Rfam assigns this 140-nucleotide RNA from Angiostrongylus costaricensis to the family "U4 spliceosomal RNA".
Clan: U4 clan.
The base pairs follow the family's consensus structure, which is taken from published work.
Rfam classes the family as a spliceosomal small nuclear RNA.
RNA sequence: GACUUUGCGCAGUGGCGAUAACGUGACCAAUGAGGCUUUGCCGAGGUGCGUUUAUUGCUGGUUGAAAACUUUUCCCAAUUGCCCGCGGUCGCCCCUGAAACACGGGAGUGACACGCAAUUUUUGAACGCCUCCGAGGAGG
Dot-bracket structure: ...................(((((.(((.....(((...)))..))))))))................................((((((((.((((.....)))).))))).)))............((((....))))